[Rfam]
RNA sequence: UCCCCCACAGUUCUCCGAUUCCCAUUUUCCGAAAGGAAUGUCUUCGGACCCCUCGGUUCGUCCGAUACCCACACGGCGCGUCGCAGUUCGGGGUCAGUGGGACCUAAUGUUCAUGCCGCGUGUGGAUCGCCGUGUGAGGGUGGCUAGCUGGCUAGCUUGCGAGACCCGCUGUUGGGAAUGGCGUUUCGGAACUUAACCCUAAGCUAUCAU
Numbered sequence: 001u002c003c004c005c006c007a008c009a010g011u012u013c014u015c016c017g018a019u020u021c022c023c024a025u026u027u028u029c030c031g032a033a034a035g036g037a038a039u040g041u042c043u044u045c046g047g048a049c050c051c052c053u054c055g056g057u058u059c060g061u062c063c064g065a066u067a068c069c070c071a072c073a074c075g076g077c078g079c080g081u082c083g084c085a086g087u088u089c090g091g092g093g094u095c096a097g098u099g100g101g102a103c104c105u106a107a108u109g110u111u112c113a114u115g116c117c118g119c120g121u122g123u124g125g126a127u128c129g130c131c132g133u134g135u136g137a138g139g140g141u142g143g144c145u146a147g148c149u150g151g152c153u154a155g156c157u158u159g160c161g162a163g164a165c166c167c168g169c170u171g172u173u174g175g176g177a178a179u180g181g182c183g184u185u186u187c188g189g190a191a192c193u194u195a196a197c198c199c200u201a202a203g204c205u206a207u208c209a210u
Base pairs, nucleotide, nucleotide: 009193010192011191015189016188017187018186
Record summary
Rfam assigns this 210-nucleotide part of an RNA from Monosporascus sp. CRB-9-2 to the family "Ascomycota telomerase RNA". NCBI's taxonomy places the organism under Eukaryota, Opisthokonta, Fungi, Pezizomycotina, Monosporascus. Rfam classes the family as a non-coding RNA gene. Its Rfam clan is "Telomerase clan". The literature on the family includes a 2013 paper in Nucleic Acids Res by Qi et al., "The common ancestral core of vertebrate and fungal telomerase RNAs". The pairing is the family consensus, mapped onto this sequence.